[Rfam]
RNA sequence: GUCCAGCAUCAGGAGUUGGGACGACGCCCAACGCCAACCUGCCGUUCCGGGCAAGGUGGCGCUUCCCUGCGAGGGGAAGGAUGCGGCCGAGACCGGCAACGAAACGGGAUCAC
Dot-bracket structure: .....(((((....((((((......))))))(((..((((((.[[[[[))).))).)))...................))))).((((....)))).......]]]]]....
Rfam assigns this 113-nucleotide RNA from Methylopila turkensis to the family "SAM-I/IV (S-adenosyl methionine) riboswitch aptamer". The base pairs follow the family's consensus structure, which is taken from published work. The source organism's lineage runs through Bacteria, Pseudomonadota, Alphaproteobacteria, Methylopilaceae and Methylopila.